[Rfam]
RNA: MicA sRNA
Organism: Xenorhabdus innexi
RNA sequence: GAAGACGCGCAAAAUUGUUAUCAUCCUUAUUUUUCUAAGAGACUUUUUUAUUCGGCCACCACUCGGUGGCCAUUUU
Number, nucleotide and partner (000 for none) at each position: 001g000002a000003a000004g000005a000006c000007g000008c000009g000010c000011a000012a000013a000014a000015u000016u000017g000018u000019u000020a000021u000022c000023a000024u000025c041026c000027u038028u037029a036030u000031u000032u000033u000034u000035c000036u029037a028038a027039g000040a000041g025042a000043c000044u000045u000046u000047u000048u000049u000050a000051u000052u000053c000054g071055g070056c069057c068058a067059c066060c065061a000062c000063u000064c000065g060066g059067u058068g057069g056070c055071c054072a000073u000074u000075u000076u000